[Rfam]
RNA: U7 small nuclear RNA
Organism: Orycteropus afer
RNA sequence: UAGUAUUACAGCUCUUUUAGAAUUUAUCUAGCAGGUUUUCUGGUUUUUCCCAGAAGACUCUU
Numbered sequence: 001u002a003g004u005a006u007u008a009c010a011g012c013u014c015u016u017u018u019a020g021a022a023u024u025u026a027u028c029u030a031g032c033a034g035g036u037u038u039u040c041u042g043g044u045u046u047u048u049c050c051c052a053g054a055a056g057a058c059u060c061u062u
Stems, first nucleotide, its partner, number of pairs: 034059010